[Rfam]
A member of the RNA family "Purine riboswitch aptamer" from Pontibacillus halophilus, 102 nucleotides long.
Rfam links the family to the GO term purine nucleobase biosynthetic process.
RNA sequence: ACCUUAUCCAAUACCCGAGCUCGUAUAAACUCACAAAUAAGGUGUGAGUGUAUCUAGUUGGCAACCGUAAAUAGCCGAACUACGAGUGAAAUGAUUCUGUCU
Number, nucleotide and partner (000 for none) at each position: 001a000002c000003c000004u000005u000006a000007u000008c000009c000010a000011a000012u000013a000014c000015c000016c000017g000018a000019g087020c086021u085022c084023g083024u082025a081026u000027a000028a000029a049030c048031u047032c046033a045034c044035a043036a000037a000038u000039a000040a000041g000042g000043u035044g034045u033046g032047a031048g030049u029050g000051u000052a000053u000054c000055u000056a000057g000058u078059u077060g076061g075062c074063a000064a072065c000066c000067g000068u000069a000070a000071a000072u064073a000074g062075c061076c060077g059078a058079a000080c000081u025082a024083c023084g022085a021086g020087u019088g000089a000090a000091a000092u000093g000094a000095u000096u000097c000098u000099g000100u000101c000102u000